RNA: mir-9014 microRNA precursor family
Organism: Equus caballus
RNA sequence: GGAACCAUAGGGAGGUAUACCAAUCCAGCCUCAGAAAAAGAAACCUGCUGUGGGAGUCUUGGAGCUUGGUGACCGUCCUAAUGACUUA
Number, nucleotide and partner (000 for none) at each position: 001g000002g087003a086004a000005c000006c083007a082008u081009a000010g079011g078012g077013a076014g000015g074016u000017a000018u071019a070020c069021c068022a067023a066024u000025c064026c000027a000028g000029c062030c061031u000032c000033a000034g000035a000036a000037a000038a060039a059040g058041a057042a000043a000044c054045c053046u052047g051048c000049u000050g000051u047052g046053g045054g044055a000056g000057u041058c040059u039060u038061g030062g029063a000064g025065c000066u023067u022068g021069g020070u019071g018072a000073c000074c015075g000076u013077c012078c011079u010080a000081a008082u007083g006084a000085c000086u003087u002088a000